[Rfam]
RNA sequence: AUGCCUUAAACUAAUGAGUAAGGAAAAUAACGAGUCAGGGUAAUGCCUGACUCCACAGUCCUAUCUGUGACGAUUUUUUGCACAGGUUCAGGUCGCCCCUUGGUAGCCCGCCUACUUUCGCGGGUAACUAGGGUUGAUGUGAUCUGCCUG
Numbered sequence: 001a002u003g004c005c006u007u008a009a010a011c012u013a014a015u016g017a018g019u020a021a022g023g024a025a026a027a028u029a030a031c032g033a034g035u036c037a038g039g040g041u042a043a044u045g046c047c048u049g050a051c052u053c054c055a056c057a058g059u060c061c062u063a064u065c066u067g068u069g070a071c072g073a074u075u076u077u078u079u080g081c082a083c084a085g086g087u088u089c090a091g092g093u094c095g096c097c098c099c100u101u102g103g104u105a106g107c108c109c110g111c112c113u114a115c116u117u118u119c120g121c122g123g124g125u126a127a128c129u130a131g132g133g134u135u136g137a138u139g140u141g142a143u144c145u146g147c148c149u150g
Stems, first nucleotide, its partner, number of pairs: 004023005032053008054069005083150005090145007098133002101130004107124005
The family of this 150-nucleotide RNA from Octopus sinensis is "U12 minor spliceosomal RNA".
It scores 127 bits against the family's covariance model.
The family's RNA type in Rfam is spliceosomal small nuclear RNA.
Pairs were carried over by alignment from the consensus structure.
Its Rfam clan is "U2 clan".